Small Cajal body specific RNA 4: a 130-nucleotide RNA from Patagioenas fasciata.
RNA sequence: UCUGGAGGACUAAUCAGACCGAGUCUGGAGAGUGAGACUCGGGUGACAUGGCCUCCAAAAAAUAAAGAGGGAUGGAGAGAGCGGCCUCGCUUGCAGCAAAGCAAAGCGCCAACUGCGCCGUCCCACACUC
Dot-bracket structure: ..((((((........(.(.((((((........)))))).).).......))))).)..........(((........((.(((.(....(((......)))..).)))..))......))).......
For this family Rfam cites "Cajal body-specific small nuclear RNAs: a novel class of 2'-O-methylation and pseudouridylation guide RNAs" (Darzacq et al., EMBO J, 2002). From the family's description: scaRNAs are a specific class of small nuclear RNAs which localise to the Cajal bodies and guide the modification of RNA polymerase II transcribed spliceosomal RNAs U1, U2, U4, U5 and U12. ACA26 belongs to the H/ACA box class of guide RNAs as it has the predicted hairpin-hinge-hairpin-tail structure, conserved H/ACA-box motifs and is found associated with GAR1. The family is grouped with related families in Rfam's "SCARNA4 clan".